[Rfam]
RNA: U4 spliceosomal RNA
RNA sequence: AGAUUUGCAGUGGCAAGAUCAUAGCCAAUGAAGUUUAUAAGAGGUGCAAUUAUUACUAAUUGAAAACUUUUCCCAAUACCCCGCCAUGAUGACUUGCAAUAUAGUUGGCCUUGGCAAUUUUUGACAGUCCCUAUGGGA
Numbered sequence: 001a002g003a004u005u006u007g008c009a010g011u012g013g014c015a016a017g018a019u020c021a022u023a024g025c026c027a028a029u030g031a032a033g034u035u036u037a038u039a040a041g042a043g044g045u046g047c048a049a050u051u052a053u054u055a056c057u058a059a060u061u062g063a064a065a066a067c068u069u070u071u072c073c074c075a076a077u078a079c080c081c082c083g084c085c086a087u088g089a090u091g092a093c094u095u096g097c098a099a100u101a102u103a104g105u106u107g108g109c110c111u112u113g114g115c116a117a118u119u120u121u122u123g124a125c126a127g128u129c130c131c132u133a134u135g136g137g138a
Stems, first nucleotide, its partner, number of pairs: 018050002022046001024045003083115003086111001088109001090107005128138004